[Rfam]
RNA sequence: UCACGCACAGGGCAAACCAUCUGAAAAGAUGGGACGCAAAGCCUCCGGCCUAAACCAUGAAGAUGAUAGGUAGCGGGGUUACCGAU
Dot-bracket structure: ...........((...((((((....))))))...))..((((.((((((.....(((....)))...)))..)))))))......
Numbered sequence: 001u002c003a004c005g006c007a008c009a010g011g012g013c014a015a016a017c018c019a020u021c022u023g024a025a026a027a028g029a030u031g032g033g034a035c036g037c038a039a040a041g042c043c044u045c046c047g048g049c050c051u052a053a054a055c056c057a058u059g060a061a062g063a064u065g066a067u068a069g070g071u072a073g074c075g076g077g078g079u080u081a082c083c084g085a086u
Stems, first nucleotide, its partner, number of pairs: 012037002017032006040080004045076003048071003056065003